A member of the RNA family "MIR6217 microRNA precursor family" from Miscanthus lutarioriparius, 226 nucleotides long. The family's consensus secondary structure was predicted with RNAalifold. It scores 141 bits against the family's covariance model.
RNA sequence: UGUCCAUAGAAUAACUUAUUCUAUGGCCACUUUGAGUUACGAUAAUUACCAUGCUAAUUUACGAGAUUACAAUAACUCCUUACUAAGUGAUUUACUAUAAUAUUAUCGUAAAUAUCACCGUGAGUUAUAGUAACACGAGUAUCGUAAAUGCAUAUUCAUGUUAUCGUAAAUUGGUAACAAAUAUUAUCGUAAAUUAAGGUGGCUAUAGAAUAGCCUAUAUAGAACA
Numbered sequence: 001u002g003u004c005c006a007u008a009g010a011a012u013a014a015c016u017u018a019u020u021c022u023a024u025g026g027c028c029a030c031u032u033u034g035a036g037u038u039a040c041g042a043u044a045a046u047u048a049c050c051a052u053g054c055u056a057a058u059u060u061a062c063g064a065g066a067u068u069a070c071a072a073u074a075a076c077u078c079c080u081u082a083c084u085a086a087g088u089g090a091u092u093u094a095c096u097a098u099a100a101u102a103u104u105a106u107c108g109u110a111a112a113u114a115u116c117a118c119c120g121u122g123a124g125u126u127a128u129a130g131u132a133a134c135a136c137g138a139g140u141a142u143c144g145u146a147a148a149u150g151c152a153u154a155u156u157c158a159u160g161u162u163a164u165c166g167u168a169a170a171u172u173g174g175u176a177a178c179a180a181a182u183a184u185u186a187u188c189g190u191a192a193a194u195u196a197a198g199g200u201g202g203c204u205a206u207a208g209a210a211u212a213g214c215c216u217a218u219a220u221a222g223a224a225c226a
Stems, first nucleotide, its partner, number of pairs: 001226003004222001006220002011218003016213018037192010052176011065165003069161003074155001080147004087142003091138002093132009103122001108116001